[Rfam]
RNA: FMN riboswitch aptamer (RFN element)
Organism: Clostridium pasteurianum
RNA sequence: GAUAAUCUUCAGGGCAGGGUGUAAUUCCCUACCGGCGGUAUAGCCCGCGAGCCAAAUUUUGGUAUGAUUCGGUGAAAUUCCGAGGCCGACAGUAAAGUCUGGAUGGAAGAAGAGAGAA
Numbered sequence: 001g002a003u004a005a006u007c008u009u010c011a012g013g014g015c016a017g018g019g020u021g022u023a024a025u026u027c028c029c030u031a032c033c034g035g036c037g038g039u040a041u042a043g044c045c046c047g048c049g050a051g052c053c054a055a056a057u058u059u060u061g062g063u064a065u066g067a068u069u070c071g072g073u074g075a076a077a078u079u080c081c082g083a084g085g086c087c088g089a090c091a092g093u094a095a096a097g098u099c100u101g102g103a104u105g106g107a108a109g110a111a112g113a114g115a116g117a118a
Base pairs, nucleotide, nucleotide: 003116006113007112008111009110010109017029018028019027031098032097033088034087035048036047037046038045043086044085053062068084069083070082071081072080090101091100092099